[Rfam]
RNA sequence: AGCUCAUCCAGAGGGGCAGAGGGAUCGGCCCGAAGAAGCCCCGGCAACCAGCGCCGGCCAGUCGCGACCACCGCGAGGCCGACCGGCGCCCACGGUGCCAAUUCCGGCCCGCCACCGCGCGGGGAAGAUGAGGG
Numbered sequence: 001a002g003c004u005c006a007u008c009c010a011g012a013g014g015g016g017c018a019g020a021g022g023g024a025u026c027g028g029c030c031c032g033a034a035g036a037a038g039c040c041c042c043g044g045c046a047a048c049c050a051g052c053g054c055c056g057g058c059c060a061g062u063c064g065c066g067a068c069c070a071c072c073g074c075g076a077g078g079c080c081g082a083c084c085g086g087c088g089c090c091c092a093c094g095g096u097g098c099c100a101a102u103u104c105c106g107g108c109c110c111g112c113c114a115c116c117g118c119g120c121g122g123g124g125a126a127g128a129u130g131a132g133g134g
Stems, first nucleotide, its partner, number of pairs: 003132006013042005021031003025107004043099004048095002103126001108123005

This 134-nucleotide RNA from Streptoalloteichus hindustanus belongs to the Rfam family "SAM riboswitch aptamer (S box leader)". NCBI's taxonomy places the organism under Bacteria, Actinomycetota, Actinomycetes, Pseudonocardiales, Streptoalloteichus. Its family is annotated with regulation of gene expression in the Gene Ontology. The family's consensus secondary structure is taken from published work.